A member of the RNA family "mir-965 microRNA precursor family" from Folsomia candida, 73 nucleotides long.
Taxonomically the source falls in Folsomia (Eukaryota, Protostomia, Pancrustacea, Hexapoda).
Gene Ontology terms of the family: RISC complex and miRNA-mediated post-transcriptional gene silencing.
The family's consensus secondary structure was predicted with RNAalifold.
RNA sequence: UUCCGGAGGGGAGAGGUCAUGUCGUUUAUGUAAAGUUAAGAACUCAUAAGCGUAUGGCUUUUCCCCUUUGGAA
Numbered sequence: 001u002u003c004c005g006g007a008g009g010g011g012a013g014a015g016g017u018c019a020u021g022u023c024g025u026u027u028a029u030g031u032a033a034a035g036u037u038a039a040g041a042a043c044u045c046a047u048a049a050g051c052g053u054a055u056g057g058c059u060u061u062u063c064c065c066c067u068u069u070g071g072a073a
Stems, first nucleotide, its partner, number of pairs: 003071005009065003013061002017057005025050006